[Rfam]
RNA sequence: GUGCCCUGUGAUGACUGAUAAAAUAUUUAUGGUUAAAAGUAGUGUCUGAUAUCUUAUUGAUGAAUAUUUCAAAUCUGAGGGCUU
Numbered sequence: 001g002u003g004c005c006c007u008g009u010g011a012u013g014a015c016u017g018a019u020a021a022a023a024u025a026u027u028u029a030u031g032g033u034u035a036a037a038a039g040u041a042g043u044g045u046c047u048g049a050u051a052u053c054u055u056a057u058u059g060a061u062g063a064a065u066a067u068u069u070c071a072a073a074u075c076u077g078a079g080g081g082c083u084u
Base pairs, nucleotide, nucleotide: 001084003082004081005080006079
RNA: Small nucleolar RNA R21
Organism: Arabidopsis lyrata